[Rfam]
RNA sequence: UUCGGCCUAGCCUACUUCUCUAUGCAGGGGGCGUGGGCCAAGGUCGUC
Numbered sequence: 001u002u003c004g005g006c007c008u009a010g011c012c013u014a015c016u017u018c019u020c021u022a023u024g025c026a027g028g029g030g031g032c033g034u035g036g037g038c039c040a041a042g043g044u045c046g047u048c
Stems, first nucleotide, its partner, number of pairs: 006043003010038005018031004
RNA: Hepatitis C virus stem-loop SL1412 RNA